[Rfam]
RNA: mir-8517 microRNA precursor family
Organism: Plutella xylostella
RNA sequence: UUAGUGGACGCUUUAGCUAUUGAACUGUUAUGUCACUCUCUGACGGAGAACAAUUUGUUAAUUUGUUAUUUGACAGAGAGGGACUAAAUAGUCCAAUAGCUAAAGCGUCCACUAUU
Dot-bracket structure: .(((((....((((((((((((.((((((.(((((.............((((...........))))...))))).)..........))))).))))))))))))....)))))..